[Rfam]
RNA: SAM-I/IV (S-adenosyl methionine) riboswitch aptamer
Organism: Candidimonas sp. SYP-B2681
RNA sequence: UAUCUACAUUACGAGUUGGGCUCGACGCCCCGCCAACCUGCCUUCCGGGGCAAGGUGGUCUGCCAAAAAGCAAAUGUGGCCCGUUCAGGGCAACCAAGCCGGCAACA
Numbered sequence: 001u002a003u004c005u006a007c008a009u010u011a012c013g014a015g016u017u018g019g020g021c022u023c024g025a026c027g028c029c030c031c032g033c034c035a036a037c038c039u040g041c042c043u044u045c046c047g048g049g050g051c052a053a054g055g056u057g058g059u060c061u062g063c064c065a066a067a068a069a070g071c072a073a074a075u076g077u078g079g080c081c082c083g084u085u086c087a088g089g090g091c092a093a094c095c096a097a098g099c100c101g102g103c104a105a106c107a
Base pairs, nucleotide, nucleotide: 006077007076008075009074010073015031018029019028032059033058034057037055038054039053040051041050042049045102046101047100048099079091080090081089082088